[Rfam]
RNA sequence: AGUGGAGGACUAGUCAAACUGAGUCUGAAGACUGAGACUCGGGUGACGGUAGCCUCCUAAAAGAAAAGGGAUGGGGAGAGCAGUCCUCCUUACAGAAAAGCAAAGGGCUGACUGUGCCAUCCGACACUU
Dot-bracket structure: ..((((((........(.(.((((((........)))))).).)........))))).)........(((........(((((((((...(.(......).).))))))).))......))).......
A member of the RNA family "Small Cajal body specific RNA 4" from Rynchops niger, 129 nucleotides long.
Clan: SCARNA4 clan.
The base pairs follow the family's consensus structure, which was predicted with RNAfold.
Its family is annotated with RNA processing, Cajal body and nucleolus in the Gene Ontology.
The family's RNA type in Rfam is small Cajal body RNA.
Rfam describes the family as follows. scaRNAs are a specific class of small nuclear RNAs which localise to the Cajal bodies and guide the modification of RNA polymerase II transcribed spliceosomal RNAs U1, U2, U4, U5 and U12. ACA26 belongs to the H/ACA box class of guide RNAs as it has the predicted hairpin-hinge-hairpin-tail structure, conserved H/ACA-box motifs and is found associated with GAR1.